Description
Small nucleolar RNA Z103: a 101-nucleotide RNA from Daucus carota. For this family Rfam cites "The high diversity of snoRNAs in plants: identification and comparative study of 120 snoRNA genes from Oryza sativa" (Chen et al., Nucleic Acids Res, 2003). Taxonomically the source falls in Daucus carota (Eukaryota, Streptophytina, eudicotyledons, Pentapetalae). The family's consensus secondary structure was predicted with PFOLD.
[Rfam]
RNA sequence: AUGGAAGUGAUGAAUAUUUCCCCAGAUGAUCGAAGCUGAAAUUACUGAGCGCUAUUUUGAUUCUCUCUUCGGAGAUUUUCCAAGCCAGAAUUCUGAUCCGU
Numbered sequence: 001a002u003g004g005a006a007g008u009g010a011u012g013a014a015u016a017u018u019u020c021c022c023c024a025g026a027u028g029a030u031c032g033a034a035g036c037u038g039a040a041a042u043u044a045c046u047g048a049g050c051g052c053u054a055u056u057u058u059g060a061u062u063c064u065c066u067c068u069u070c071g072g073a074g075a076u077u078u079u080c081c082a083a084g085c086c087a088g089a090a091u092u093c094u095g096a097u098c099c100g101u
Base pairs, nucleotide, nucleotide: 001101002100003099004098005097